[Rfam]
RNA sequence: UUUUCUGAUUUUCGAAUCGAGGAUUUCACGGCUAGAAUGCAAGAUAAAAGCAUACUGGCCCUCAAAUCUUCGCUUCGAACUUUGGAA
Numbered sequence: 001u002u003u004u005c006u007g008a009u010u011u012u013c014g015a016a017u018c019g020a021g022g023a024u025u026u027c028a029c030g031g032c033u034a035g036a037a038u039g040c041a042a043g044a045u046a047a048a049a050g051c052a053u054a055c056u057g058g059c060c061c062u063c064a065a066a067u068c069u070u071c072g073c074u075u076c077g078a079a080c081u082u083u084g085g086a087a
Stems, first nucleotide, its partner, number of pairs: 011079006018072009028062001030060004037053004
Description:
The record is an 87-nucleotide RNA from Caenorhabditis japonica, which matches "mir-240 microRNA precursor family" in Rfam. For this family Rfam cites "The microRNAs of Caenorhabditis elegans" (Lim et al., Genes Dev, 2003). The match comes from Rfam's covariance-model search (68 bits). Gene Ontology terms of the family: miRNA-mediated post-transcriptional gene silencing and RISC complex.